[Rfam]
RNA sequence: CAUUGAGAUGAUGAUAUCCUUUUCUGAAAAAUAUAAUGUCGACUAAAAAAAAUCAGACUACAAUUAUCUGAUCACUG
Numbered sequence: 001c002a003u004u005g006a007g008a009u010g011a012u013g014a015u016a017u018c019c020u021u022u023u024c025u026g027a028a029a030a031a032u033a034u035a036a037u038g039u040c041g042a043c044u045a046a047a048a049a050a051a052a053u054c055a056g057a058c059u060a061c062a063a064u065u066a067u068c069u070g071a072u073c074a075c076u077g
Stems, first nucleotide, its partner, number of pairs: 001077002004074003
Small nucleolar RNA Z155: a 77-nucleotide RNA sequence from Durio zibethinus. NCBI's taxonomy places the organism under Eukaryota, Magnoliopsida, Malvales, Malvaceae, Durio.